Description
The family of this 98-nucleotide RNA sequence from Eubacterium sp. AF22-8LB is "Purine riboswitch aptamer". A search with the family's covariance model found it, with a score of 45 bits. Taxonomically the source falls in Eubacterium (Bacteria, Clostridia, Eubacteriales, Eubacteriaceae). The base pairs follow the family's consensus structure, which is taken from published work.
[Rfam]
RNA sequence: UAUCCGUAUAAUAGUCCGGGUUAUAUAAGUUCAUGAUAUGGUUGAACGUUCAUACCUACUACCGAAAACAGUAGACUAUAGCUUUCAAGCAGGAGGAA
Numbered sequence: 001u002a003u004c005c006g007u008a009u010a011a012u013a014g015u016c017c018g019g020g021u022u023a024u025a026u027a028a029g030u031u032c033a034u035g036a037u038a039u040g041g042u043u044g045a046a047c048g049u050u051c052a053u054a055c056c057u058a059c060u061a062c063c064g065a066a067a068a069c070a071g072u073a074g075a076c077u078a079u080a081g082c083u084u085u086c087a088a089g090c091a092g093g094a095g096g097a098a
Stems, first nucleotide, its partner, number of pairs: 018084008029047005056074005
Dot-bracket structure: .................((((((((...(((((.........)))))........(((((.........)))))..))))))))..............